This 184-nucleotide RNA belongs to the Rfam family "permuted transfer-messenger RNA". Its family is annotated with RNA catabolic process in the Gene Ontology. A reference for the family is Mao et al. (2010), "Variations on the tmRNA gene", RNA Biol.
RNA sequence: GGUUGCAAAGUCUGUUGUUCUGGACAGGGGUUCGAUUCCCCUCACUUCCAUUCUUGGGGGUGCCAUGGUUUCGACAGGGCAAAAAGGUUGUAAUUGUUGACGGAACAAAACCAUAGAUGCAAACACAUCUGAUUCCGCUGCGAAUAACAUCGUAGCAUUCUCCCGCAGCACCGUUGCUGCCUGA
Numbered sequence: 001g002g003u004u005g006c007a008a009a010g011u012c013u014g015u016u017g018u019u020c021u022g023g024a025c026a027g028g029g030g031u032u033c034g035a036u037u038c039c040c041c042u043c044a045c046u047u048c049c050a051u052u053c054u055u056g057g058g059g060g061u062g063c064c065a066u067g068g069u070u071u072c073g074a075c076a077g078g079g080c081a082a083a084a085a086g087g088u089u090g091u092a093a094u095u096g097u098u099g100a101c102g103g104a105a106c107a108a109a110a111c112c113a114u115a116g117a118u119g120c121a122a123a124c125a126c127a128u129c130u131g132a133u134u135c136c137g138c139u140g141c142g143a144a145u146a147a148c149a150u151c152g153u154a155g156c157a158u159u160c161u162c163c164c165g166c167a168g169c170a171c172c173g174u175u176g177c178u179g180c181c182u183g184a
Stems, first nucleotide, its partner, number of pairs: 001095005016081003020077003026042005043062007